[Rfam]
RNA sequence: GGCCGGAGGAAAAGAAAAAAUAUAGAAUGAAGCAUCUAAUAUGGGCAAGCAGGGAGCUAGAACAAUUUGCAAUUAAUCCAGGCC
Number, nucleotide and partner (000 for none) at each position: 001g084002g083003c082004c081005g079006g078007a077008g000009g000010a000011a000012a000013a000014g000015a000016a000017a000018a000019a000020a000021u000022a000023u000024a000025g000026a000027a000028u000029g000030a000031a000032g000033c000034a000035u000036c000037u000038a000039a000040u000041a000042u000043g000044g000045g000046c000047a000048a000049g000050c000051a000052g000053g000054g000055a000056g000057c000058u000059a000060g000061a000062a000063c000064a000065a000066u000067u000068u000069g000070c000071a000072a000073u000074u000075a000076a000077u007078c006079c005080a000081g004082g003083c002084c001